The family of this 65-nucleotide RNA sequence from Oceanobacillus indicireducens is "Bacillaceae-1 RNA". The family's consensus secondary structure is taken from published work. The family has 95 seed sequences and 5,721 matches in Rfam 15.1. It is annotated as a small RNA.

RNA sequence: UUCUUCCGAGGCAGGCUAAGAUCGCCACGUCCUGUGGCAACGUCUGCAUUAGCACGUCCUGUGCG
Numbered sequence: 001u002u003c004u005u006c007c008g009a010g011g012c013a014g015g016c017u018a019a020g021a022u023c024g025c026c027a028c029g030u031c032c033u034g035u036g037g038c039a040a041c042g043u044c045u046g047c048a049u050u051a052g053c054a055c056g057u058c059c060u061g062u063g064c065g
Base pairs, nucleotide, nucleotide: 011047012046013045014044015043016042024038025037026036027035028034052064053063054062055061